[Rfam]
The record is a 214-nucleotide part of an RNA from Zea mays, which matches "Archaeal large subunit ribosomal RNA" in Rfam.
The family's consensus secondary structure is taken from published work.
It scores 1222 bits against the family's covariance model.
RNA sequence: UAUUUACUUUAUUAGAAAAUAAUUUCUAAUGUAUAAUACCUACUAAAAGAUAUUUAGCUUAAUUCCUGUAGAGAAUAUAUUCAUAUAUAUAUAUAUUAUUUGACAAGGAUAGUUUAAAUCAUAUAAGGAUCCUUGUUUAUUCUCUUAUUCAUUUAGGUCUCGAGAUAAAUUUUCCUGAUAUACCUAAAAUGUGAUUUUGGGGUGUUACACAAGG
Numbered sequence: 001u002a003u004u005u006a007c008u009u010u011a012u013u014a015g016a017a018a019a020u021a022a023u024u025u026c027u028a029a030u031g032u033a034u035a036a037u038a039c040c041u042a043c044u045a046a047a048a049g050a051u052a053u054u055u056a057g058c059u060u061a062a063u064u065c066c067u068g069u070a071g072a073g074a075a076u077a078u079a080u081u082c083a084u085a086u087a088u089a090u091a092u093a094u095a096u097u098a099u100u101u102g103a104c105a106a107g108g109a110u111a112g113u114u115u116a117a118a119u120c121a122u123a124u125a126a127g128g129a130u131c132c133u134u135g136u137u138u139a140u141u142c143u144c145u146u147a148u149u150c151a152u153u154u155a156g157g158u159c160u161c162g163a164g165a166u167a168a169a170u171u172u173u174c175c176u177g178a179u180a181u182a183c184c185u186a187a188a189a190u191g192u193g194a195u196u197u198u199g200g201g202g203u204g205u206u207a208c209a210c211a212a213g214g
Stems, first nucleotide, its partner, number of pairs: 008050003012046004060139003066135001068133001073131002081126001083124004092117001097111005143214004